A member of the RNA family "Group II catalytic intron D1-D4-3" from Pectinatus brassicae, 176 nucleotides long. The organism belongs to Pectinatus, within Bacteria. Pairs were carried over by alignment from the consensus structure. About the family: Group II introns are found in rRNA, tRNA and mRNA of organelles in fungi, plants and protists, and also in mRNA in bacteria.
[Rfam]
RNA sequence: UCCACCGCGAGGUGGAAUCUGAAGGAAGCCGGCGGCAAAUCUCUGGUUUGACGAACAGAAACCACAUAUAAGGCAGGAAGAAGCCGGGUAAGGCUGCAUAACAAACUGAAGCCCAAAACCCAAAACUACUCGAGGCCAAUCCUGUAAAUGUGGCAGAUAGAUAGAAAGACUGUGUU
Numbered sequence: 001u002c003c004a005c006c007g008c009g010a011g012g013u014g015g016a017a018u019c020u021g022a023a024g025g026a027a028g029c030c031g032g033c034g035g036c037a038a039a040u041c042u043c044u045g046g047u048u049u050g051a052c053g054a055a056c057a058g059a060a061a062c063c064a065c066a067u068a069u070a071a072g073g074c075a076g077g078a079a080g081a082a083g084c085c086g087g088g089u090a091a092g093g094c095u096g097c098a099u100a101a102c103a104a105a106c107u108g109a110a111g112c113c114c115a116a117a118a119c120c121c122a123a124a125a126c127u128a129c130u131c132g133a134g135g136c137c138a139a140u141c142c143u144g145u146a147a148a149u150g151u152g153g154c155a156g157a158u159a160g161a162u163a164g165a166a167a168g169a170c171u172g173u174g175u176u
Stems, first nucleotide, its partner, number of pairs: 001016006028176001030174002036168001040163001042161003046158005062153006073145003077141001079140001083136002086114004092107002095104001
Dot-bracket structure: ((((((....))))))...........(.((....(...(.(((.(((((...........((((((.....(((.(.(...((.((((..((.(........).))...))))....................))...)).)))..)))))))))))))).)....)....)).)